Rfam assigns this 262-nucleotide part of an RNA from Desulfobulbus sp. Tol-SR to the family "Bacterial large subunit ribosomal RNA". A reference for the family is Yusupov et al. (2001), "Crystal structure of the ribosome at 5.5 A resolution", Science. Its family is annotated with structural constituent of ribosome and ribosome in the Gene Ontology.
RNA sequence: GGAGAAUUGAGUGGGUCUGUUCCUAGUACGAGAGGACCGGAAUGGACGAUUCCCUAGUGGACCUGUUGUCGCGCCAGCGGCAUAGCAGGGUAGCUAUAAUCGGAAUGGAUAACCGCUGAAAGCAUCUAAGCGGGAAACCAGCCACAAGAUAAGUUCUCCCUUGUCGCAAGACACUGAAGAUCCCAGGCAGACCACCUGGUAGAUAGGCCGGAAGUGUAAGCGCAGUAAUGUGUUCAGCUGACCGGUACUAAUAGAUCGUGAG
Numbered sequence: 001g002g003a004g005a006a007u008u009g010a011g012u013g014g015g016u017c018u019g020u021u022c023c024u025a026g027u028a029c030g031a032g033a034g035g036a037c038c039g040g041a042a043u044g045g046a047c048g049a050u051u052c053c054c055u056a057g058u059g060g061a062c063c064u065g066u067u068g069u070c071g072c073g074c075c076a077g078c079g080g081c082a083u084a085g086c087a088g089g090g091u092a093g094c095u096a097u098a099a100u101c102g103g104a105a106u107g108g109a110u111a112a113c114c115g116c117u118g119a120a121a122g123c124a125u126c127u128a129a130g131c132g133g134g135a136a137a138c139c140a141g142c143c144a145c146a147a148g149a150u151a152a153g154u155u156c157u158c159c160c161u162u163g164u165c166g167c168a169a170g171a172c173a174c175u176g177a178a179g180a181u182c183c184c185a186g187g188c189a190g191a192c193c194a195c196c197u198g199g200u201a202g203a204u205a206g207g208c209c210g211g212a213a214g215u216g217u218a219a220g221c222g223c224a225g226u227a228a229u230g231u232g233u234u235c236a237g238c239u240g241a242c243c244g245g246u247a248c249u250a251a252u253a254g255a256u257c258g259u260g261a262g
Stems, first nucleotide, its partner, number of pairs: 001159008011145004017045007047102005055096003062089005067082006106140003113133005162173003176259001179257004183199005204250003207246005213239002220233005